[Rfam]
RNA: mir-22 microRNA precursor family
Nucleotides: 086
Base pairs, nucleotide, nucleotide: 012077017072018071019070020069021068022067026062027061028060030059031058032057033056034055035054036053
Number, partner (000 for none) and nucleotide at each position: 001000g002000g003000c004000c005000c006000g007000c008000u009000a010000g011000a012077a013000g014000c015000a016000g017072u018071u019070c020069u021068u022067c023000a024000g025000u026062g027061g028060c029000a030059a031058g032057c033056u034055u035054u036053a037000u038000g039000u040000u041000g042000u043000u044000c045000c046000u047000c048000u049000g050000u051000g052000c053036u054035a055034a056033a057032g058031c059030u060028g061027c062026c063000a064000g065000u066000u067022g068021a069020a070019g071018a072017a073000c074000u075000g076000u077012u078000g079000a080000a081000a082000g083000u084000g085000g086000c